[Rfam]
RNA: U4atac minor spliceosomal RNA
RNA sequence: UUCAUCCUUGUCUUGGGGGAGCAAAGUAUACAAUGAUCGUUUAGUGAGGAUACUGUUGCUGAAGCCCAUUAUGAAUUUAUAAAACUCGCAUCCACGCAUAAUUUUGUCGUGAGAUGCAAUUUUUGAAAGC
Number, nucleotide and partner (000 for none) at each position: 001u000002u000003c000004a000005u019006c018007c017008u016009u015010g000011u000012c000013u000014u000015g009016g008017g007018g006019g005020a000021g059022c058023a057024a056025a054026g053027u052028a051029u050030a000031c048032a000033a000034u000035g000036a000037u000038c044039g000040u000041u000042u000043a000044g038045u000046g000047a000048g031049g000050a029051u028052a027053c026054u025055g000056u024057u023058g022059c021060u000061g000062a000063a000064g000065c000066c000067c000068a000069u000070u000071a000072u000073g000074a000075a000076u000077u000078u000079a000080u000081a000082a000083a000084a000085c000086u000087c000088g117089c116090a115091u114092c113093c000094a000095c000096g000097c111098a110099u109100a000101a107102u106103u000104u000105u000106g102107u101108c000109g099110u098111g097112a000113g092114a091115u090116g089117c088118a000119a000120u000121u000122u000123u000124u000125g000126a000127a000128a000129g000130c000